[Rfam]
The record is a 132-nucleotide RNA sequence from Nannospalax galili, which matches "Small nucleolar RNA SNORA72" in Rfam.
It is annotated as an H/ACA-box small nucleolar RNA.
U72 is a member of the H/ACA class of snoRNAs.
The source organism's lineage runs through Eukaryota, Euarchontoglires, Myomorpha, Spalacinae and Nannospalax.
RNA sequence: CUGCUAAUAUUUUCAUUGUACUGAUUUUGUCAUAAUCAGAACAGGCUAAACAUUCACUGUAGUAAAACCAUGCAUGUGUUCUCAGAUCUAGUUCUUUCCCUAGAUCUGGUUUUCUAAAUGUGAGUGACAAAC
Numbered sequence: 001c002u003g004c005u006a007a008u009a010u011u012u013u014c015a016u017u018g019u020a021c022u023g024a025u026u027u028u029g030u031c032a033u034a035a036u037c038a039g040a041a042c043a044g045g046c047u048a049a050a051c052a053u054u055c056a057c058u059g060u061a062g063u064a065a066a067a068c069c070a071u072g073c074a075u076g077u078g079u080u081c082u083c084a085g086a087u088c089u090a091g092u093u094c095u096u097u098c099c100c101u102a103g104a105u106c107u108g109g110u111u112u113u114c115u116a117a118a119u120g121u122g123a124g125u126g127a128c129a130a131a132c
Base pairs, nucleotide, nucleotide: 003057016044017043018042019041021039022038023037024036025035026034067125068124072121073120082109083108084107085106086105087104088103089102090101091100
The family has 29 seed sequences and 1,541 matches in Rfam 15.1.
Gene Ontology terms of the family: nucleolus and RNA processing.